[Rfam]
Nucleotides: 150
Stems, first nucleotide, its partner, number of pairs: 017133002021129002024127005030121006037114006046105005
Number, partner (000 for none) and nucleotide at each position: 001000g002000g003000g004000u005000a006000a007000a008000g009000a010000c011000a012000g013000g014000g015000c016000a017133a018132a019000a020000g021129c022128a023000g024127g025126g026125g027124a028123a029000c030121a031120g032119g033118c034117a035116g036000a037114g038113c039112a040111u041110g042109g043000a044000u045000g046105g047104a048103g049102c050101u051000a052000u053000c054000a055000a056000c057000a058000u059000a060000a061000u062000a063000g064000a065000g066000u067000c068000a069000a070000g071000a072000a073000a074000c075000u076000g077000c078000g079000a080000a081000u082000g083000a084000g085000a086000g087000g088000g089000a090000a091000a092000a093000a094000c095000u096000g097000u098000u099000g100000c101050g102049g103048u104047u105046u106000c107000a108000c109042u110041c111040a112039u113038g114037c115000a116035c117034u118033g119032c120031c121030u122000c123028u124027u125026c126025c127024c128022u129021g130000g131000c132018u133017u134000u135000g136000u137000c138000u139000c140000c141000a142000u143000u144000c145000u146000c147000c148000u149000c150000u